[Rfam]
RNA sequence: CCAAUAGAGUUUAUUGGCAUUCUGUCCACCUCCCCUCCUUUCUUCAAAUCUUUUUAUUCAAAUUUUUUGGUUUUUGUUUUUUUUUUUUUUUUUAUAAAGAAAAUUUAUUUAUAAUAUAGGGGGAGGUGGGCAUACUGCCAACUGAGUUCUGUUGG
Numbered sequence: 001c002c003a004a005u006a007g008a009g010u011u012u013a014u015u016g017g018c019a020u021u022c023u024g025u026c027c028a029c030c031u032c033c034c035c036u037c038c039u040u041u042c043u044u045c046a047a048a049u050c051u052u053u054u055u056a057u058u059c060a061a062a063u064u065u066u067u068u069g070g071u072u073u074u075u076g077u078u079u080u081u082u083u084u085u086u087u088u089u090u091u092u093u094a095u096a097a098a099g100a101a102a103a104u105u106u107a108u109u110u111a112u113a114a115u116a117u118a119g120g121g122g123g124a125g126g127u128g129g130g131c132a133u134a135c136u137g138c139c140a141a142c143u144g145a146g147u148u149c150u151g152u153u154g155g
Base pairs, nucleotide, nucleotide: 011145014141015140016139017138018137019136023132024131025130026129027128028127029126030125031124032123033122034121035120036119